[Rfam]
RNA sequence: GUAGCGUUUAUAUGUGCCGGUGUUUUCGUUCGUAGCUUGAUAAAAGUGAGAAUCCGCCGCCUUCAAUAAACCUCCUCUCUCUGUUUGUUGCUUUUUUAGGCUUUGCUAAUUUGUGAGUAACGGCUAUCUGGGG
Numbered sequence: 001g002u003a004g005c006g007u008u009u010a011u012a013u014g015u016g017c018c019g020g021u022g023u024u025u026u027c028g029u030u031c032g033u034a035g036c037u038u039g040a041u042a043a044a045a046g047u048g049a050g051a052a053u054c055c056g057c058c059g060c061c062u063u064c065a066a067u068a069a070a071c072c073u074c075c076u077c078u079c080u081c082u083g084u085u086u087g088u089u090g091c092u093u094u095u096u097u098a099g100g101c102u103u104u105g106c107u108a109a110u111u112u113g114u115g116a117g118u119a120a121c122g123g124c125u126a127u128c129u130g131g132g133g
Stems, first nucleotide, its partner, number of pairs: 003073002006071005018059005025052003035047004087104001090101004
The record is a 133-nucleotide RNA from Helicobacter sp. 10-6591, which matches "purD RNA motif" in Rfam. A reference for the family is Weinberg et al. (2007), "Identification of 22 candidate structured RNAs in bacteria using the CMfinder comparative genomics pipeline", Nucleic Acids Res. The family's RNA type in Rfam is cis-regulatory element.